[Rfam]
RNA sequence: GGCUGUACCGGUUAGAUUGGGAUACUCAUCAAUAAUUACUUGAAAACCGAGAUCAGUUAGCUUGUUAAUGGCGUGCCGAUAUGCGCUUGCGUAGGGUCGGAUUACAGAGGCAGGUUAACCCUCAAAUCUUUAUUUCGCUCGGAGUUUCAUCACAUCACUGGUACAGCCAUUUUU
Numbered sequence: 001g002g003c004u005g006u007a008c009c010g011g012u013u014a015g016a017u018u019g020g021g022a023u024a025c026u027c028a029u030c031a032a033u034a035a036u037u038a039c040u041u042g043a044a045a046a047c048c049g050a051g052a053u054c055a056g057u058u059a060g061c062u063u064g065u066u067a068a069u070g071g072c073g074u075g076c077c078g079a080u081a082u083g084c085g086c087u088u089g090c091g092u093a094g095g096g097u098c099g100g101a102u103u104a105c106a107g108a109g110g111c112a113g114g115u116u117a118a119c120c121c122u123c124a125a126a127u128c129u130u131u132a133u134u135u136c137g138c139u140c141g142g143a144g145u146u147u148c149a150u151c152a153c154a155u156c157a158c159u160g161g162u163a164c165a166g167c168c169a170u171u172u173u174u
Stems, first nucleotide, its partner, number of pairs: 056119011069106002076100004

The family of this 174-nucleotide sequence from Prevotella sp. CAG:891 is "Bacteroidales-1 6S-Bacteroidales RNA suggested".
A reference for the family is Ryan et al. (2020), "A high-resolution transcriptome map identifies small RNA regulation of metabolism in the gut microbe Bacteroides thetaiotaomicron", Nat Commun.
Pairs were carried over by alignment from the consensus structure, which is taken from published work.
Taxonomically the source falls in Prevotella (Bacteria, Bacteroidota, Bacteroidia, Bacteroidales).
Rfam classes the family as a small RNA.
The match comes from Rfam's covariance-model search (110 bits).